Small nucleolar RNA SNORA8: a 139-nucleotide sequence from Heterocephalus glaber. Rfam describes the family as follows. ACA8 is a member of the H/ACA class of snoRNA that guide the sites of modification of uridines to pseudouridines. NCBI's taxonomy places the organism under Eukaryota, Opisthokonta, Amniota, Hystricomorpha, Heterocephalus. The match comes from Rfam's covariance-model search (114 bits). The family's RNA type in Rfam is H/ACA-box small nucleolar RNA.
RNA sequence: UGCACUCUGUGGUAUCUACACUCAACAGUGUAUUCCCGCUAGUGGGUUCAAGGGACAGUGCAAUAGAAAUUGAGUAUUUGACAUCAUUGGUUUUCUUGGCUUUGUGCAUGUUAAACUUGGUAUUUCUAUUGAUAUAGUA
Numbered sequence: 001u002g003c004a005c006u007c008u009g010u011g012g013u014a015u016c017u018a019c020a021c022u023c024a025a026c027a028g029u030g031u032a033u034u035c036c037c038g039c040u041a042g043u044g045g046g047u048u049c050a051a052g053g054g055a056c057a058g059u060g061c062a063a064u065a066g067a068a069a070u071u072g073a074g075u076a077u078u079u080g081a082c083a084u085c086a087u088u089g090g091u092u093u094u095c096u097u098g099g100c101u102u103u104g105u106g107c108a109u110g111u112u113a114a115a116c117u118u119g120g121u122a123u124u125u126c127u128a129u130u131g132a133u134a135u136a137g138u139a
Base pairs, nucleotide, nucleotide: 002061003060004059005058006057015054016053017052018047019046021044023042024040026038028036064128065127066126067125068124069123070122071120073118074117082106083105084104
Dot-bracket structure: .(((((........(((((.(.((.(.(.......).).).).).))....)))..)))))..((((((((.((.......(((...................)))..........)).).)))))))...........